[Rfam]
RNA sequence: AUGCUUUAUUUAUUUGCUAAGCCUAUGGAUUAAAAUGUAUAUGCUUGGGCUUGUAAAACAAUAAAGCUAAAAAUGGUUUCCUCUCGCUAUCCAUUGCAUUUGUUAUAUUUUUGCAAAUGGACGUCGAGGAACAACAUUC
Numbered sequence: 001a002u003g004c005u006u007u008a009u010u011u012a013u014u015u016g017c018u019a020a021g022c023c024u025a026u027g028g029a030u031u032a033a034a035a036u037g038u039a040u041a042u043g044c045u046u047g048g049g050c051u052u053g054u055a056a057a058a059c060a061a062u063a064a065a066g067c068u069a070a071a072a073a074u075g076g077u078u079u080c081c082u083c084u085c086g087c088u089a090u091c092c093a094u095u096g097c098a099u100u101u102g103u104u105a106u107a108u109u110u111u112u113g114c115a116a117a118u119g120g121a122c123g124u125c126g127a128g129g130a131a132c133a134a135c136a137u138u139c
Base pairs, nucleotide, nucleotide: 002069003067004066005065008062009061010060013057014056015055019052020051021050022049023048024047025046030043078131079130080129081128082127083126085123086122090121091120092119093118094117
Rfam assigns this 139-nucleotide RNA from Carex littledalei to the family "Small nucleolar RNA snoR136".